[Rfam]
RNA sequence: GUAGUCGGAUUCACAUCAAUUCACAUGUGUUGGGGUGGAUUGGAGUGUAACUUAAACUAAAUUCCACCUCAAUCCAACUCAACACAUGUGGAUUGAGUUAAAUACGACA
Numbered sequence: 001g002u003a004g005u006c007g008g009a010u011u012c013a014c015a016u017c018a019a020u021u022c023a024c025a026u027g028u029g030u031u032g033g034g035g036u037g038g039a040u041u042g043g044a045g046u047g048u049a050a051c052u053u054a055a056a057c058u059a060a061a062u063u064c065c066a067c068c069u070c071a072a073u074c075c076a077a078c079u080c081a082a083c084a085c086a087u088g089u090g091g092a093u094u095g096a097g098u099u100a101a102a103u104a105c106g107a108c109a
Stems, first nucleotide, its partner, number of pairs: 004108004009103003013099001016096017036076008045067003
RNA: MIR5565 microRNA precursor family
Organism: Sorghum bicolor